[Rfam]
The record is an 86-nucleotide RNA from Genlisea aurea, which matches "Small nucleolar RNA Z157/R69/R10" in Rfam.
The literature on the family includes a 2003 paper in Nucleic Acids Res by Chen et al., "The high diversity of snoRNAs in plants: identification and comparative study of 120 snoRNA genes from Oryza sativa".
Lineage of the source: Eukaryota > Streptophytina > Spermatophyta > Lamiales > Genlisea.
Rfam classes the family as a C/D-box small nucleolar RNA.

RNA sequence: UUGUGUGCAGUGAUGAUGCGUUUUAUUUGGACUAGAGUUUCUGAUUUCUUAGUUGAAGACUAACCCUUGGCUGUCUGAGCACACGA
Numbered sequence: 001u002u003g004u005g006u007g008c009a010g011u012g013a014u015g016a017u018g019c020g021u022u023u024u025a026u027u028u029g030g031a032c033u034a035g036a037g038u039u040u041c042u043g044a045u046u047u048c049u050u051a052g053u054u055g056a057a058g059a060c061u062a063a064c065c066c067u068u069g070g071c072u073g074u075c076u077g078a079g080c081a082c083a084c085g086a
Stems, first nucleotide, its partner, number of pairs: 001086008038058004045051001